A member of the RNA family "Pyrrolysine insertion sequence mttB" from Roseovarius mucosus, 100 nucleotides long. For this family Rfam cites "Effects of using coding potential, sequence conservation and mRNA structure conservation for predicting pyrroly-sine containing genes" (Theil Have et al., BMC Bioinformatics, 2013). Rfam 15.1 lists 416 matches to the family in 326 species. The match comes from Rfam's covariance-model search (54 bits). By type it is a cis-regulatory element.
RNA sequence: AUCGCCGAUGCGAAAUUGCCCGACAUGCAGGCAGGCUGGGAACAGGCAACCUCGAAUGUCAUGGCAGGCCUUUCGGGCCUGAACAUGGUCUAUGAGGCGG
Numbered sequence: 001a002u003c004g005c006c007g008a009u010g011c012g013a014a015a016u017u018g019c020c021c022g023a024c025a026u027g028c029a030g031g032c033a034g035g036c037u038g039g040g041a042a043c044a045g046g047c048a049a050c051c052u053c054g055a056a057u058g059u060c061a062u063g064g065c066a067g068g069c070c071u072u073u074c075g076g077g078c079c080u081g082a083a084c085a086u087g088g089u090c091u092a093u094g095a096g097g098c099g100g
Base pairs, nucleotide, nucleotide: 003012033062035060077098079096080095